[Rfam]
RNA sequence: UUGCAGUGAUGACAUCUUAGGACACCCUCGAACAAUAAUGAGACUAAUUAAUAGCUGAGCAAC
Numbered sequence: 001u002u003g004c005a006g007u008g009a010u011g012a013c014a015u016c017u018u019a020g021g022a023c024a025c026c027c028u029c030g031a032a033c034a035a036u037a038a039u040g041a042g043a044c045u046a047a048u049u050a051a052u053a054g055c056u057g058a059g060c061a062a063c
Base pairs, nucleotide, nucleotide: 001062002061003060004059